[Rfam]
RNA sequence: UGAUGGGGACGGCCCCAUGUCCCAGAGCUGACGGGGACGGCCCCG
Numbered sequence: 001u002g003a004u005g006g007g008g009a010c011g012g013c014c015c016c017a018u019g020u021c022c023c024a025g026a027g028c029u030g031a032c033g034g035g036g037a038c039g040g041c042c043c044c045g
Stems, first nucleotide, its partner, number of pairs: 003018006032045005
The record is a 45-nucleotide RNA sequence from Nothoprocta ornata, which matches "Guanidine-II riboswitch aptamer (mini-ykkC)" in Rfam. The family has 72 seed sequences and 1,589 matches in Rfam 15.1. It scores 35 bits against the family's covariance model.